This 87-nucleotide RNA sequence from Paenibacillus abyssi belongs to the Rfam family "c-di-GMP-I riboswitch aptamer".
It scores 77 bits against the family's covariance model.
NCBI's taxonomy places the organism under Bacteria, Bacillota, Bacilli, Paenibacillaceae, Paenibacillus.
RNA sequence: AACCAACAAGGGCAAACCUGUUGAAAAGCAGGGGCGCAAAGCCAUGGGCCUAAAACGGACUCAUCGUUAUGGCAGCCGGUUACAGAA
Numbered sequence: 001a002a003c004c005a006a007c008a009a010g011g012g013c014a015a016a017c018c019u020g021u022u023g024a025a026a027a028g029c030a031g032g033g034g035c036g037c038a039a040a041g042c043c044a045u046g047g048g049c050c051u052a053a054a055a056c057g058g059a060c061u062c063a064u065c066g067u068u069a070u071g072g073c074a075g076c077c078g079g080u081u082a083c084a085g086a087a
Stems, first nucleotide, its partner, number of pairs: 012037002017032006040081004046077002048073003055067004